[Rfam]
RNA: mir-190 microRNA precursor family
Organism: Echinococcus granulosus
RNA sequence: UCGACAAUGAGAUAUGUUUGGGUUACUUGGUGCUGUGCUCUAUCCUCUUACACCAGUGACCAAACAUAUUCACAUUGUU
Numbered sequence: 001u002c003g004a005c006a007a008u009g010a011g012a013u014a015u016g017u018u019u020g021g022g023u024u025a026c027u028u029g030g031u032g033c034u035g036u037g038c039u040c041u042a043u044c045c046u047c048u049u050a051c052a053c054c055a056g057u058g059a060c061c062a063a064a065c066a067u068a069u070u071c072a073c074a075u076u077g078u079u
Base pairs, nucleotide, nucleotide: 005077006076007075008074009073011070012069013068014067015066016065017064018063019062020061021060023059024058025057026056029054030053031052032051